[Rfam]
RNA sequence: UGGUCAUUACCAAGGAUACUAGGAAAUGCCAUUUCUGGUGUGCUGUGGACAUGACCAUAAAGUAACUCCAUCAGAUUUUGGCACAGCUACUUUCGUGGCACUAAAUCUGUUGGAAACAAUA
Numbered sequence: 001u002g003g004u005c006a007u008u009a010c011c012a013a014g015g016a017u018a019c020u021a022g023g024a025a026a027u028g029c030c031a032u033u034u035c036u037g038g039u040g041u042g043c044u045g046u047g048g049a050c051a052u053g054a055c056c057a058u059a060a061a062g063u064a065a066c067u068c069c070a071u072c073a074g075a076u077u078u079u080g081g082c083a084c085a086g087c088u089a090c091u092u093u094c095g096u097g098g099c100a101c102u103a104a105a106u107c108u109g110u111u112g113g114a115a116a117c118a119a120u121a
Stems, first nucleotide, its partner, number of pairs: 003055005010048003028043002067114004074107004086099002

The record is a 121-nucleotide sequence from Pelodiscus sinensis, which matches "Small nucleolar RNA SNORA32" in Rfam. Pairs were carried over by alignment from the consensus structure, which was predicted with RNAfold. Rfam's curators write: ACA32 is a member of the H/ACA class of snoRNA that guide the sites of modification of uridines to pseudouridines. Taxonomically the source falls in Pelodiscus (Eukaryota, Deuterostomia, Sarcopterygii, Dipnotetrapodomorpha). The family's RNA type in Rfam is H/ACA-box small nucleolar RNA. It scores 74 bits against the family's covariance model. Gene Ontology terms of the family: RNA processing and nucleolus.